[Rfam]
Annotation: Shown here is a 75-nucleotide RNA from Baekduia soli, a member of the family "c-di-GMP-I-GGC riboswitch aptamer". NCBI's taxonomy places the organism under Bacteria, Actinomycetota, Thermoleophilia, Baekduiaceae, Baekduia.
RNA sequence: ACCGAAAACGGCACACCCGUCGCGAGGCGGGGUCGCAAAGCCAGGGGCCUCACCGAGGCAGCCCAGCUACCGAAA
Numbered sequence: 001a002c003c004g005a006a007a008a009c010g011g012c013a014c015a016c017c018c019g020u021c022g023c024g025a026g027g028c029g030g031g032g033u034c035g036c037a038a039a040g041c042c043a044g045g046g047g048c049c050u051c052a053c054c055g056a057g058g059c060a061g062c063c064c065a066g067c068u069a070c071c072g073a074a075a
Base pairs, nucleotide, nucleotide: 003072004071011036012035016031017030018029019028020027021026034061039068040067041066044064045063046062047059048058049057